[Rfam]
RNA sequence: UGCUGGUCUGAGGGUAGUGAGUUAUCUCAACUGAUUGUUCACAGUCAGUUACAGAUCAAAUUUCUUGUUCUACUCUUUGCCCCCUUCUCACUAUUGCACUUGAGUAGUCUUAA
Numbered sequence: 001u002g003c004u005g006g007u008c009u010g011a012g013g014g015u016a017g018u019g020a021g022u023u024a025u026c027u028c029a030a031c032u033g034a035u036u037g038u039u040c041a042c043a044g045u046c047a048g049u050u051a052c053a054g055a056u057c058a059a060a061u062u063u064c065u066u067g068u069u070c071u072a073c074u075c076u077u078u079g080c081c082c083c084c085u086u087c088u089c090a091c092u093a094u095u096g097c098a099c100u101u102g103a104g105u106a107g108u109c110u111u112a113a
Base pairs, nucleotide, nucleotide: 002108003107004106005105007103008102010101011100014097015096016092017091018090019089020088021087044074047071048070